[Rfam]
RNA sequence: AAAUAGAAAAAAGUAAGUAAGGGAAGUCGGCAAAAUAGAUCCGUAACUUCGGGAAAAGGAUUGGCUCUGAGGACAUUAGAAUAGAGAAGAAAAGAAAAUGAUUGAAGAUAUAAAAAUAUAGAUGAUAUUCUUAGAUUUUCGUCUUUAAGAGUAUUUCUAUAUUUUGUUUUUCUUUUAUUAUCUUUUCUCCCCCUCUAUUCGCCUUUAUUUAUAUUCCUGUUUCGGCAGGAAGUAAUUAUGAAACUUAUAAUGUUAACUCAGAACUGAAACGGACAAGGGGAAUCCGACUGUUUAAUUAAAACAUAGCAUUGUGACAAGCCAUAACUGGUAUUAACACAAUGUGAUUUCUGCCCAGUGCUUUGAAUGUCAACUUGAUGAAAUUCAAUCAAGCGCAGGUAAACGGCGGGAGUAACUAUGACUCUCUUAAGGUAGCCAAAUGCCUCGUCAUCUAAUUAGUGACGCGCAUGAAUGGAUUAACGAGAUUCCCACUGUCCCUACUUGCUAUCUAGCGAAACCACAGCCAAGGGAACGGGCUUGGCAAA
Numbered sequence: 001a002a003a004u005a006g007a008a009a010a011a012a013g014u015a016a017g018u019a020a021g022g023g024a025a026g027u028c029g030g031c032a033a034a035a036u037a038g039a040u041c042c043g044u045a046a047c048u049u050c051g052g053g054a055a056a057a058g059g060a061u062u063g064g065c066u067c068u069g070a071g072g073a074c075a076u077u078a079g080a081a082u083a084g085a086g087a088a089g090a091a092a093a094g095a096a097a098a099u100g101a102u103u104g105a106a107g108a109u110a111u112a113a114a115a116a117u118a119u120a121g122a123u124g125a126u127a128u129u130c131u132u133a134g135a136u137u138u139u140c141g142u143c144u145u146u147a148a149g150a151g152u153a154u155u156u157c158u159a160u161a162u163u164u165u166g167u168u169u170u171u172c173u174u175u176u177a178u179u180a181u182c183u184u185u186u187c188u189c190c191c192c193c194u195c196u197a198u199u200c201g202c203c204u205u206u207a208u209u210u211a212u213a214u215u216c217c218u219g220u221u222u223c224g225g226c227a228g229g230a231a232g233u234a235a236u237u238a239u240g241a242a243a244c245u246u247a248u249a250a251u252g253u254u255a256a257c258u259c260a261g262a263a264c265u266g267a268a269a270c271g272g273a274c275a276a277g278g279g280g281a282a283u284c285c286g287a288c289u290g291u292u293u294a295a296u297u298a299a300a301a302c303a304u305a306g307c308a309u310u311g312u313g314a315c316a317a318g319c320c321a322u323a324a325c326u327g328g329u330a331u332u333a334a335c336a337c338a339a340u341g342u343g344a345u346u347u348c349u350g351c352c353c354a355g356u357g358c359u360u361u362g363a364a365u366g367u368c369a370a371c372u373u374g375a376u377g378a379a380a381u382u383c384a385a386u387c388a389a390g391c392g393c394a395g396g397u398a399a400a401c402g403g404c405g406g407g408a409g410u411a412a413c414u415a416u417g418a419c420u421c422u423c424u425u426a427a428g429g430u431a432g433c434c435a436a437a438u439g440c441c442u443c444g445u446c447a448u449c450u451a452a453u454u455a456g457u458g459a460c461g462c463g464c465a466u467g468a469a470u471g472g473a474u475u476a477a478c479g480a481g482a483u484u485c486c487c488a489c490u491g492u493c494c495c496u497a498c499u500u501g502c503u504a505u506c507u508a509g510c511g512a513a514a515c516c517a518c519a520g521c522c523a524a525g526g527g528a529a530c531g532g533g534c535u536u537g538g539c540a541a542a
Stems, first nucleotide, its partner, number of pairs: 004508004012503008021494003038062005047052001063265002066262006072254005081198001083196004092188001094186002096183001098181005104175005110169001112167001114165003121158001266270001278487007285479002289303003306342008316331001318329004346473003350404003355401002357397004362393001365392003372385004405423006424428001444460005521538005

A member of the RNA family "Eukaryotic large subunit ribosomal RNA" from Plasmodium gonderi, 542 nucleotides of a longer RNA. Pairs were carried over by alignment from the consensus structure, which is taken from published work.